[Rfam]
Description
This 105-nucleotide sequence from Chryseolinea serpens belongs to the Rfam family "SAM riboswitch aptamer (S box leader)".
RNA sequence: AAUUUAUACAGAAGGGGGGAGAGACAGGCUCUGCGAACCCCUAGCAACUUCCAGGUUUGAAACCCGGGUCAGUGCUAAAUCCUGCCACCAAAGGGUAUAUAAAUC
Numbered sequence: 001a002a003u004u005u006a007u008a009c010a011g012a013a014g015g016g017g018g019g020a021g022a023g024a025c026a027g028g029c030u031c032u033g034c035g036a037a038c039c040c041c042u043a044g045c046a047a048c049u050u051c052c053a054g055g056u057u058u059g060a061a062a063c064c065c066g067g068g069u070c071a072g073u074g075c076u077a078a079a080u081c082c083u084g085c086c087a088c089c090a091a092a093g094g095g096u097a098u099a100u101a102a103a104u105c
Stems, first nucleotide, its partner, number of pairs: 002104007013042005021031003025084004043076004048072002050068003080097001085094002
Dot-bracket structure: .(((((((....(((((...(((.[[[[)))......)))))((((.(((((.............)))..))))))...(]]]]((......))..)))))))).
Taxonomically the source falls in Chryseolinea (Bacteria, Pseudomonadati, Bacteroidota, Cytophagia).